[Rfam]
RNA sequence: GGUUUAAAGGGUGCGUAGGCUGUUAUGUAAGUCAGCGGUGAAAUACCAGAGCUUAACUUUGGGGCUGCCGUUGAUACUGCAUAGCUGGAAUAUGGUUGCUGUUGGCGGAAUGUGUAGUGUAGCGGUGAAAUGCAUAGAUAUUACACAGAACACCGAUUGCGAAGGCAGCUGACAAAGCCAUCAUUGACGCUGAUGCACGAAAGUGUGGGGAUCAAACAGGAUUAGAUACCCCUGUAGUCCUGGCAGUAAACGGUGCACGCUUGGUGUGCGGGGAAUCGACCCCCUGCGUGCCGGAGCUAACGCGUUAAGCGUGCCGCCUGGGGAGUACGGUCGCAAGAUUAAAACUCAAAGAAAU
Numbered sequence: 001g002g003u004u005u006a007a008a009g010g011g012u013g014c015g016u017a018g019g020c021u022g023u024u025a026u027g028u029a030a031g032u033c034a035g036c037g038g039u040g041a042a043a044u045a046c047c048a049g050a051g052c053u054u055a056a057c058u059u060u061g062g063g064g065c066u067g068c069c070g071u072u073g074a075u076a077c078u079g080c081a082u083a084g085c086u087g088g089a090a091u092a093u094g095g096u097u098g099c100u101g102u103u104g105g106c107g108g109a110a111u112g113u114g115u116a117g118u119g120u121a122g123c124g125g126u127g128a129a130a131u132g133c134a135u136a137g138a139u140a141u142u143a144c145a146c147a148g149a150a151c152a153c154c155g156a157u158u159g160c161g162a163a164g165g166c167a168g169c170u171g172a173c174a175a176a177g178c179c180a181u182c183a184u185u186g187a188c189g190c191u192g193a194u195g196c197a198c199g200a201a202a203g204u205g206u207g208g209g210g211a212u213c214a215a216a217c218a219g220g221a222u223u224a225g226a227u228a229c230c231c232c233u234g235u236a237g238u239c240c241u242g243g244c245a246g247u248a249a250a251c252g253g254u255g256c257a258c259g260c261u262u263g264g265u266g267u268g269c270g271g272g273g274a275a276u277c278g279a280c281c282c283c284c285u286g287c288g289u290g291c292c293g294g295a296g297c298u299a300a301c302g303c304g305u306u307a308a309g310c311g312u313g314c315c316g317c318c319u320g321g322g323g324a325g326u327a328c329g330g331u332c333g334c335a336a337g338a339u340u341a342a343a344a345c346u347c348a349a350a351g352a353a354a355u
Stems, first nucleotide, its partner, number of pairs: 001318003009315001011198004016192001018191003022085007030078002032074009046062006089185003092181006100174007107151001111147008122133003159166002203244002207240002213237001219231002255314006263292011296303002320347003329340004
Overview: Rfam assigns this 355-nucleotide part of an RNA from an uncultured bacterium to the family "Bacterial small subunit ribosomal RNA". Pairs were carried over by alignment from the consensus structure, which is taken from published work. The sequence is in the family's curated seed alignment. Rfam 15.1 lists 42,628 matches to the family in 10,626 species.